The family of this 84-nucleotide sequence from Tripterygium wilfordii is "Small nucleolar RNA Z221/R21b".
[Rfam]
RNA sequence: GGGCGGUGAUGAGGAACAAGUCAUGCACCACUCUGAUGAAAUCUGUGCUGAUAAAUUCUGAAUUACCCAUUCGUAUCUGAGCCC
Numbered sequence: 001g002g003g004c005g006g007u008g009a010u011g012a013g014g015a016a017c018a019a020g021u022c023a024u025g026c027a028c029c030a031c032u033c034u035g036a037u038g039a040a041a042u043c044u045g046u047g048c049u050g051a052u053a054a055a056u057u058c059u060g061a062a063u064u065a066c067c068c069a070u071u072c073g074u075a076u077c078u079g080a081g082c083c084c
Base pairs, nucleotide, nucleotide: 001084002083003082004081